[Rfam]
RNA sequence: CUGAUUAUUACCAUCAUUAAACAUCAAUGGUGGGUUUGCUAGUGUCUGACUGAAUGAACAAAACCCGCCCACGAGGCGGGUUUU
Number, nucleotide and partner (000 for none) at each position: 001c000002u000003g000004a000005u000006u000007a000008u000009u000010a000011c033012c032013a031014u030015c029016a028017u027018u000019a000020a000021a000022c000023a000024u000025c000026a000027a017028u016029g015030g014031u013032g012033g011034g000035u000036u000037u000038g000039c000040u000041a000042g000043u000044g000045u000046c000047u000048g000049a000050c000051u000052g000053a000054a000055u000056g000057a000058a000059c000060a000061a083062a082063a081064c080065c079066c078067g077068c076069c075070c000071a000072c000073g000074a000075g069076g068077c067078g066079g065080g064081u063082u062083u061084u000
A member of the RNA family "Pseudomonas sRNA P9" from Pseudoteredinibacter isoporae, 84 nucleotides long. Pairs were carried over by alignment from the consensus structure, which was predicted with RNAalifold. This small RNA (sRNA) was computationally identified in the genome of the opportunistic pathogen Pseudomonas aeruginosa and its expression verified by northern blot analysis. The literature on the family includes a 2006 paper in Nucleic Acids Res by Livny et al., "Identification of 17 Pseudomonas aeruginosa sRNAs and prediction of sRNA-encoding genes in 10 diverse pathogens using the bioinformatic tool sRNAPredict2". The match comes from Rfam's covariance-model search (62 bits). The organism belongs to Pseudoteredinibacter, within Bacteria.